[Rfam]
RNA sequence: CAAUCUGGAGCGCUGAAUUCUUUGCAAAAAGAAGCGGGGGACCCAAUUACUUGGGGUGAAUCACCUUUAGGCAGGCUGUAAAGGCUUAUGCUGAAAGGUGUAGGGCUACACCCUUAGGCCCGAACCCGUCAGCUAACCCCGUAAGCGUGGUAAGGGGAGAUU
Numbered sequence: 001c002a003a004u005c006u007g008g009a010g011c012g013c014u015g016a017a018u019u020c021u022u023u024g025c026a027a028a029a030a031g032a033a034g035c036g037g038g039g040g041a042c043c044c045a046a047u048u049a050c051u052u053g054g055g056g057u058g059a060a061u062c063a064c065c066u067u068u069a070g071g072c073a074g075g076c077u078g079u080a081a082a083g084g085c086u087u088a089u090g091c092u093g094a095a096a097g098g099u100g101u102a103g104g105g106c107u108a109c110a111c112c113c114u115u116a117g118g119c120c121c122g123a124a125c126c127c128g129u130c131a132g133c134u135a136a137c138c139c140c141g142u143a144a145g146c147g148u149g150g151u152a153a154g155g156g157g158a159g160a161u162u
Stems, first nucleotide, its partner, number of pairs: 011147004018033005034142006044053002054127003062100007103121004
Dot-bracket structure: ..........((((...(((((......)))))((((((....((......))(((.....(((((((.........................)))))))..((((...........))))...))).........)))))).))))...............
RNA: c-di-AMP riboswitch aptamer (ydaO/yuaA leader)
Organism: Caldicoprobacter faecalis